[Rfam]
Rfam assigns this 152-nucleotide sequence from Thermoclostridium stercorarium to the family "Ribosomal protein L10 leader".
RNA sequence: GUGAAACUGAAUAUUGAACCAUAGACAGCAGGAACCGCAAGGUGUAACGUAUAUCAUCCUGCCGAGGUUAAGCUUCAAGGGUUUAAAAAGGUAUACAACCCUCUGUAUGUCUGUGGUUAUCCAGGAAAUACAGAGGGUUUUUAUAUAUACGC
Numbered sequence: 001g002u003g004a005a006a007c008u009g010a011a012u013a014u015u016g017a018a019c020c021a022u023a024g025a026c027a028g029c030a031g032g033a034a035c036c037g038c039a040a041g042g043u044g045u046a047a048c049g050u051a052u053a054u055c056a057u058c059c060u061g062c063c064g065a066g067g068u069u070a071a072g073c074u075u076c077a078a079g080g081g082u083u084u085a086a087a088a089a090g091g092u093a094u095a096c097a098a099c100c101c102u103c104u105g106u107a108u109g110u111c112u113g114u115g116g117u118u119a120u121c122c123a124g125g126a127a128a129u130a131c132a133g134a135g136g137g138u139u140u141u142u143a144u145a146u147a148u149a150c151g152c
Stems, first nucleotide, its partner, number of pairs: 028062006034043003099137010
Background
The organism belongs to Thermoclostridium stercorarium subsp. stercorarium, within Bacteria. Rfam's curators write: This family is a putative r-protein leader autoregulatory structure found in B. subtilis and other low-GC Gram-positive bacteria. It is located in the 5' untranslated regions of mRNAs encoding ribosomal proteins L10 and L12 (rplJ-rplL). The base pairs follow the family's consensus structure, which was predicted with CMfinder.